[Rfam]
RNA: Molybdenum/Tungsten riboswitch aptamer (Moco RNA motif)
RNA sequence: CACGUCCGACAACUCCGAGGCGGCACGGCCUACGUUCCCCAGGGAAUACGGUCUGCCGUCCGUGGUCUUCGCGAUCACCAGGGCGACGCCGGAAACGACGCCGCCUCCCGGCCUUGGAAAGGAGCACAGACCAUGCAC
Numbered sequence: 001c002a003c004g005u006c007c008g009a010c011a012a013c014u015c016c017g018a019g020g021c022g023g024c025a026c027g028g029c030c031u032a033c034g035u036u037c038c039c040c041a042g043g044g045a046a047u048a049c050g051g052u053c054u055g056c057c058g059u060c061c062g063u064g065g066u067c068u069u070c071g072c073g074a075u076c077a078c079c080a081g082g083g084c085g086a087c088g089c090c091g092g093a094a095a096c097g098a099c100g101c102c103g104c105c106u107c108c109c110g111g112c113c114u115u116g117g118a119a120a121g122g123a124g125c126a127c128a129g130a131c132c133a134u135g136c137a138c
Stems, first nucleotide, its partner, number of pairs: 003135002013124004019060007027053004034047004062078005081106005087100002090097002107117002